[Rfam]
RNA sequence: UCAGAGGGUCGGGCGGCCGCGUCACGCGCAAGCGUGCCGAGGAAAGUCCGGGCUCCACGGAAACGACGGUGCCGGGUAACGCCCGGCGGGCUUGCGGCUUGCGCCGCGGGUUCAGGGAAAGUGCCACAGAGAGCAGACGGCCUUUGGCUUCGGCCGGGUUACGGUGAAAGGGUGCGGUAAGAGCGCACCGCGCGGCCGGCAACGGCAGCGGCAUGGCAAACCCCACCGGGAGCAAGACCGAAUAGGGGCGGCAUGGAACGUGGCGACACGUUCCGGGGCAUCGUUCCGGCCCGCCGCCCGGGUUGGUUGCUAGAGGCGCCGCGCAAGCGUCGCCCAAGAGGAAUGGUCGCCUAUCCCGCUUCGGCGGGUGGACAGAACCCGGCUUACAGACCCUCUGACAUU
Dot-bracket structure: ((((((((((((((((((.((.(((((....))))).))....[[[.[[[[[((((........[.((((((((((.....)))))((((((((((((....))))))))))).)((...(((((............(((((..((((....)))))))..)).......((((((.......))))))((((.((((....)))).))).)..)))..)))))))))))))...((((......((((((..........................(..((.]...))..).)))))).....))))......((((.(((....))).))))..........)))))))..........................]]]]]]]].).))))))))))....
The record is a 402-nucleotide sequence from Sphingomonas sp. CFBP 13720, which matches "Bacterial RNase P class A" in Rfam. It scores 270 bits against the family's covariance model. Lineage of the source: Bacteria > Alphaproteobacteria > Sphingomonadales > Sphingomonadaceae > Sphingomonas. By type it is a ribozyme.